[Rfam]
Shown here is an 87-nucleotide sequence from Gossypium laxum, a member of the family "MIR7486 microRNA precursor family". The match comes from Rfam's covariance-model search (80 bits). Rfam links the family to the GO terms miRNA-mediated post-transcriptional gene silencing and RISC complex. Lineage of the source: Eukaryota > Embryophyta > Magnoliopsida > Gunneridae > Gossypium.
RNA sequence: CACGUCAGCGCGCUUUGCUGACGUGGACAAAAAUCGCGCUGACGUGGACACGAUUUGUUGCCACGUCAUCAAAGCGCGCUGACGUGG
Numbered sequence: 001c002a003c004g005u006c007a008g009c010g011c012g013c014u015u016u017g018c019u020g021a022c023g024u025g026g027a028c029a030a031a032a033a034u035c036g037c038g039c040u041g042a043c044g045u046g047g048a049c050a051c052g053a054u055u056u057g058u059u060g061c062c063a064c065g066u067c068a069u070c071a072a073a074g075c076g077c078g079c080u081g082a083c084g085u086g087g
Base pairs, nucleotide, nucleotide: 001086002085003084004083005082006081007080008079009078010077011076012075013074014073015072016071017070019068020067021066023064024063025062026061029058031056032055033054034053035052036051038049040047